[Rfam]
RNA sequence: CCUCACAUAAUUCGGGUUUCGGGACGAUGGAACCGUGUUCAUACCUGGUUCGUUGUCGACGAAACCUGCAAAAUGUGCGG
Numbered sequence: 001c002c003u004c005a006c007a008u009a010a011u012u013c014g015g016g017u018u019u020c021g022g023g024a025c026g027a028u029g030g031a032a033c034c035g036u037g038u039u040c041a042u043a044c045c046u047g048g049u050u051c052g053u054u055g056u057c058g059a060c061g062a063a064a065c066c067u068g069c070a071a072a073a074u075g076u077g078c079g080g
Stems, first nucleotide, its partner, number of pairs: 001080002004077003013068009030051005
RNA: mir-981 microRNA precursor family